The family of this 546-nucleotide part of an RNA from Hexamita sp. is "Eukaryotic small subunit ribosomal RNA".
Clan: SSU clan.
Pairs were carried over by alignment from the consensus structure, which is taken from published work.
RNA sequence: UACCUGGUUGAACCUGCCAGAAGGGCAAGCUAAGAUUAAGGAUUAAGCCAUGCAUGCCAGGUAUAAGCUAAUACACAGGUGAAACUGCGAACGGCUCAUUAAAUCAGUUGAAAUGUCUCGUGCUUUAUUCGUAGUCGGCUAAUACGGGCAACUCUCUUACUAAUCGUGCUUCGUUACAUCGGUAGUGAGAGCGAUCUCGGGUUGAUUUAUGUUGUAAAAAUGACUGUUAGGCAGGCACGAUCAGCUUCUGACGCAUCAUUAAGUAGGAGAAGUAAAGGUUAUCCUAUGAGUUCACGCGUACCGGAGAAUUAGGGUUCGACUCCGGAGAAUGAGCAUGAGAGACGGCUCAUAGUUCUAAGGGAGGCAGCAGGCGCGGAAAUUGCCCAAUGUACAAACGUACGAGGCAGUGACGAAAAAUCUUGAGCCGGCUUAGGCCGGUAUUAAGCUGAGCGAGGCGCACACACCCUCGCGAACGCAAUUAGUGGGAGAGCAUGGUGCCAGCAGCCGCGGUAAUUCCAUCACUGAUAGCUUUCUCUUACGUUGUUG
Numbered sequence: 001u002a003c004c005u006g007g008u009u010g011a012a013c014c015u016g017c018c019a020g021a022a023g024g025g026c027a028a029g030c031u032a033a034g035a036u037u038a039a040g041g042a043u044u045a046a047g048c049c050a051u052g053c054a055u056g057c058c059a060g061g062u063a064u065a066a067g068c069u070a071a072u073a074c075a076c077a078g079g080u081g082a083a084a085c086u087g088c089g090a091a092c093g094g095c096u097c098a099u100u101a102a103a104u105c106a107g108u109u110g111a112a113a114u115g116u117c118u119c120g121u122g123c124u125u126u127a128u129u130c131g132u133a134g135u136c137g138g139c140u141a142a143u144a145c146g147g148g149c150a151a152c153u154c155u156c157u158u159a160c161u162a163a164u165c166g167u168g169c170u171u172c173g174u175u176a177c178a179u180c181g182g183u184a185g186u187g188a189g190a191g192c193g194a195u196c197u198c199g200g201g202u203u204g205a206u207u208u209a210u211g212u213u214g215u216a217a218a219a220a221u222g223a224c225u226g227u228u229a230g231g232c233a234g235g236c237a238c239g240a241u242c243a244g245c246u247u248c249u250g251a252c253g254c255a256u257c258a259u260u261a262a263g264u265a266g267g268a269g270a271a272g273u274a275a276a277g278g279u280u281a282u283c284c285u286a287u288g289a290g291u292u293c294a295c296g297c298g299u300a301c302c303g304g305a306g307a308a309u310u311a312g313g314g315u316u317c318g319a320c321u322c323c324g325g326a327g328a329a330u331g332a333g334c335a336u337g338a339g340a341g342a343c344g345g346c347u348c349a350u351a352g353u354u355c356u357a358a359g360g361g362a363g364g365c366a367g368c369a370g371g372c373g374c375g376g377a378a379a380u381u382g383c384c385c386a387a388u389g390u391a392c393a394a395a396c397g398u399a400c401g402a403g404g405c406a407g408u409g410a411c412g413a414a415a416a417a418u419c420u421u422g423a424g425c426c427g428g429c430u431u432a433g434g435c436c437g438g439u440a441u442u443a444a445g446c447u448g449a450g451c452g453a454g455g456c457g458c459a460c461a462c463a464c465c466c467u468c469g470c471g472a473a474c475g476c477a478a479u480u481a482g483u484g485g486g487a488g489a490g491c492a493u494g495g496u497g498c499c500a501g502c503a504g505c506c507g508c509g510g511u512a513a514u515u516c517c518a519u520c521a522c523u524g525a526u527a528g529c530u531u532u533c534u535c536u537u538a539c540g541u542u543g544u545u546g
Stems, first nucleotide, its partner, number of pairs: 004020005022536004027531005036413002040408001041374001047372003051369003056088002060086003067080002095327003104251004110245001114243002120238004136166002143159002146156003176215003180211002190203003224231002252298003259289003264286005270280002302324004306317004329350006353362003380406001382405003388401005421443003424439006450470002452467001454466002479525006492519004501508002
Dot-bracket structure: ...(((((.......))))).((((.(((((....((..((.....(((.(((..((..(((....((..........))...)))))......(((......((((..(...((....((((............((.....((.(((.....))).)).....)).........(((.((........(((........)))......)).)))........((....))...))))...)).)..))))(((....(((..(((((.((.......)).))))))))......)))...((((((((....))))...))))))).((((((..........))))))..(((....)))....)))))).).....(.(((...(((((....))))).)))).)...)).......(((((((((....)))))).)))......(((.((.........))).))........((((((.......((((.....((....)).......)))))))))).))))).))))..........
For this family Rfam cites "Crystal structure of the ribosome at 5.5 A resolution" (Yusupov et al., Science, 2001).
Its family is annotated with ribosome and structural constituent of ribosome in the Gene Ontology.